This 302-nucleotide RNA sequence from Candidatus Methanoperedens nitratireducens belongs to the Rfam family "Group II catalytic intron D1-D4-6".
Pairs were carried over by alignment from the consensus structure.
The organism belongs to Candidatus Methanoperedens, within Archaea.
A search with the family's covariance model found it, with a score of 94 bits.
For this family Rfam cites "Control of branch-site choice by a group II intron" (Chu et al., EMBO J, 2001).

[Rfam]
RNA sequence: AAAAUCCAGCCUGAGGAAAGGUUAGCCGCCACCUUUGAACUGAACCCCACACCCAAUCUGGUAACAGGUUGUUGUGAAGCUGGGGGGAAGGGAUACCAGGCCGCAAUAAUAAUAAAAAAAAAGAAGAGAAAUGGAAGUGAAGGUUAUAAGCCCCGAAAUUUUGCUGAUCUUGGAAGCUGAUGUUAUUUGCGUAACAGAAGGCAGCAAUCACACCACCGAUAUUAAGCAUCUCCAGUCUUGGAAUAUAGCAGAGAGCUAUGCGACACGGCAAGGUGUUGUGAAUCCAACGGGGUCUAAGACCG
Numbered sequence: 001a002a003a004a005u006c007c008a009g010c011c012u013g014a015g016g017a018a019a020g021g022u023u024a025g026c027c028g029c030c031a032c033c034u035u036u037g038a039a040c041u042g043a044a045c046c047c048c049a050c051a052c053c054c055a056a057u058c059u060g061g062u063a064a065c066a067g068g069u070u071g072u073u074g075u076g077a078a079g080c081u082g083g084g085g086g087g088a089a090g091g092g093a094u095a096c097c098a099g100g101c102c103g104c105a106a107u108a109a110u111a112a113u114a115a116a117a118a119a120a121a122a123g124a125a126g127a128g129a130a131a132u133g134g135a136a137g138u139g140a141a142g143g144u145u146a147u148a149a150g151c152c153c154c155g156a157a158a159u160u161u162u163g164c165u166g167a168u169c170u171u172g173g174a175a176g177c178u179g180a181u182g183u184u185a186u187u188u189g190c191g192u193a194a195c196a197g198a199a200g201g202c203a204g205c206a207a208u209c210a211c212a213c214c215a216c217c218g219a220u221a222u223u224a225a226g227c228a229u230c231u232c233c234a235g236u237c238u239u240g241g242a243a244u245a246u247a248g249c250a251g252a253g254a255g256c257u258a259u260g261c262g263a264c265a266c267g268g269c270a271a272g273g274u275g276u277u278g279u280g281a282a283u284c285c286a287a288c289g290g291g292g293u294c295u296a297a298g299a300c301c302g
Stems, first nucleotide, its partner, number of pairs: 013035004020030003040090002045085003050076003054071007147296001150293006170287004175283001176202003181196004208281005214275004